RNA sequence: AAAAACUCCCAUUAAAGGUGUUGUACUCCAUCCGGGAGCAACUUUACCAUAUUCUGAGUUA
Number, nucleotide and partner (000 for none) at each position: 001a000002a000003a000004a000005a000006c000007u000008c000009c000010c000011a000012u000013u000014a000015a000016a000017g045018g044019u000020g042021u041022u040023g039024u038025a000026c036027u035028c000029c000030a000031u000032c000033c000034g000035g027036g026037a000038g024039c023040a022041a021042c020043u000044u018045u017046a000047c000048c000049a000050u000051a000052u000053u000054c000055u000056g000057a000058g000059u000060u000061a000
RNA: Plastid-psbN 5UTR RNA
Organism: Geminocystis sp. NIES-3708